[Rfam]
RNA sequence: GGGAGUCCGACUGUUUAAUAAAAACGUAGCAUCGUGAUGGUCCCUGCGGAUGUUGACACGAUGUGAAUCCUGCCCAGUGCUCUGUCCGUCAAUCCAGAGAAAUCCAGGCAAGCAUGGGUAAACGGCGGGAGUAACUAUGACUCUCUUAAGGUAGCUAAAUGCCUCGUCAUCUAAUUAGUGACGCGCAUGAAUGGAACAACGAGAUUCCCACUG
Numbered sequence: 001g002g003g004a005g006u007c008c009g010a011c012u013g014u015u016u017a018a019u020a021a022a023a024a025c026g027u028a029g030c031a032u033c034g035u036g037a038u039g040g041u042c043c044c045u046g047c048g049g050a051u052g053u054u055g056a057c058a059c060g061a062u063g064u065g066a067a068u069c070c071u072g073c074c075c076a077g078u079g080c081u082c083u084g085u086c087c088g089u090c091a092a093u094c095c096a097g098a099g100a101a102a103u104c105c106a107g108g109c110a111a112g113c114a115u116g117g118g119u120a121a122a123c124g125g126c127g128g129g130a131g132u133a134a135c136u137a138u139g140a141c142u143c144u145c146u147u148a149a150g151g152u153a154g155c156u157a158a159a160u161g162c163c164u165c166g167u168c169a170u171c172u173a174a175u176u177a178g179u180g181a182c183g184c185g186c187a188u189g190a191a192u193g194g195a196a197c198a199a200c201g202a203g204a205u206u207c208c209c210a211c212u213g
Stems, first nucleotide, its partner, number of pairs: 001209007008201002012026003029064008040051004068195003072126003077123002079119004084115001088113002094107001097104002127145006146150001166182005